[Rfam]
RNA sequence: UGGUGGUGACGCGACUGGCGGCACCGGGGAUGGGAUCGACCAUCGGGGAGCUCUCGUCGUGGGGGUCGUCCGCCUGGGCCUCCGCG
Numbered sequence: 001u002g003g004u005g006g007u008g009a010c011g012c013g014a015c016u017g018g019c020g021g022c023a024c025c026g027g028g029g030a031u032g033g034g035a036u037c038g039a040c041c042a043u044c045g046g047g048g049a050g051c052u053c054u055c056g057u058c059g060u061g062g063g064g065g066u067c068g069u070c071c072g073c074c075u076g077g078g079c080c081u082c083c084g085c086g
Stems, first nucleotide, its partner, number of pairs: 003058001006055001008053002011051002015047002017074005030043004063081005
RNA: ZMP/ZTP riboswitch aptamer (pfl RNA motif)